[Rfam]
RNA sequence: AGAGGUUACAAGCUCAAGACCAUAGCAGAAGUGUUCAUGGUGCAGCCUUGUCAGAUGCCAAUGAAUCUAUAAAUUCUGCU
Dot-bracket structure: ................[[.[...((((((((((.......))).].]]....((((.(....).)))).....)))))))
Numbered sequence: 001a002g003a004g005g006u007u008a009c010a011a012g013c014u015c016a017a018g019a020c021c022a023u024a025g026c027a028g029a030a031g032u033g034u035u036c037a038u039g040g041u042g043c044a045g046c047c048u049u050g051u052c053a054g055a056u057g058c059c060a061a062u063g064a065a066u067c068u069a070u071a072a073a074u075u076c077u078g079c080u
Stems, first nucleotide, its partner, number of pairs: 017048002020045001024080007031043003053068004058063001
The record is an 80-nucleotide sequence from Alligator sinensis, which matches "Mammalian CPEB3 ribozyme" in Rfam.